[Rfam]
RNA sequence: GUAUAGGAAAAGCUGAAUCCAAAAUUUACCUUUGGAGCGGGGGGCAAAUCUUGGGGUGAAUCAUGUGAGCUGUUCACGUGUAGGGCUUACACCUACGGCCCGAAUCCGUCAACUAACCUCGUAAGCUAAGAAAGGUGGACUU
Numbered sequence: 001g002u003a004u005a006g007g008a009a010a011a012g013c014u015g016a017a018u019c020c021a022a023a024a025u026u027u028a029c030c031u032u033u034g035g036a037g038c039g040g041g042g043g044g045c046a047a048a049u050c051u052u053g054g055g056g057u058g059a060a061u062c063a064u065g066u067g068a069g070c071u072g073u074u075c076a077c078g079u080g081u082a083g084g085g086c087u088u089a090c091a092c093c094u095a096c097g098g099c100c101c102g103a104a105u106c107c108g109u110c111a112a113c114u115a116a117c118c119u120c121g122u123a124a125g126c127u128a129a130g131a132a133a134g135g136u137g138g139a140c141u142u
Stems, first nucleotide, its partner, number of pairs: 011127004018036006037122006045053002054107003062080004083101004

A member of the RNA family "c-di-AMP riboswitch aptamer (ydaO/yuaA leader)" from Desulfosporosinus orientis, 142 nucleotides long. It scores 86 bits against the family's covariance model. NCBI's taxonomy places the organism under Bacteria, Bacillati, Clostridia, Eubacteriales, Desulfosporosinus orientis.